Shown here is a 560-nucleotide part of an RNA, a member of the family "Bacterial large subunit ribosomal RNA". Pairs were carried over by alignment from the consensus structure, which is taken from published work. It scores 1517 bits against the family's covariance model.
RNA sequence: AUGAGUAACGAUAAGCACUUUGUGAAUGAGUGCCGUCUUAUUCCUUAAGGUUUCCCAAACAAAUGUUGUUCAUUUUGGGGUUAUUCGGUCUCUAAGCGUAGCGCUGAAAAGCUAGCGUGAUGAGUUUUGAAGUUACUAUGAAAAAAAGUAAUCAAGAAAAAGCUUCAAAAUAACCGUACUAAAACCAACACAGGUGAGGUAGCAUAGUAAUGCUAAGACGUAGAGAUAAUUAUUCAAAAGGAACUCGGCAAAUUGUUCCUGUAACUUCGGGAGAAGGGAAGUCUUUUUGUUAAUAAAAAAGAUUGCAAAAAAUCGGAAAUAGCAACUGUUUAAUAAAAACACAGGUCUUUGCAAACACGUAAGUGGUAGUAUAAGGACUGACUCCUGCCAGGUGCUGUUAUUUUAACCUUUGUUGUGUUUGCAACAAAACUAAGAACCAGUAAACGGCGGCAGUAACUCUGACUGUCCUAAGGUAGCGAAAUUCAUUGGUCACUAAUUAUGAUCCUGCAUGAAUGGAGUAAUGACUGUUUCACUGUCUCUUGAAUAAUCUCUGUGAAAUU
Dot-bracket structure: (......((.....((((((.......))))))((((.....((((..((...((((((....((.....)).))))))......((((.((...(((....(((....)))...)))...)).............(((..............................)))))))..))....((......)).)))).((((......))))..)))).((((....((((((((.(((..............(((((....(....).....)))))(((((((((....).))))))))(...).......(((((((((..(((.........)))..(((((((((...(((....)))...)..))))))))..((((.(((..((((((...(((......(((((((....)))))))......))).))))..)))))((((((.......))))))(...).....(.........(((((.......)))))).........))))...)).)))))))....))).)))))))).)))))).....)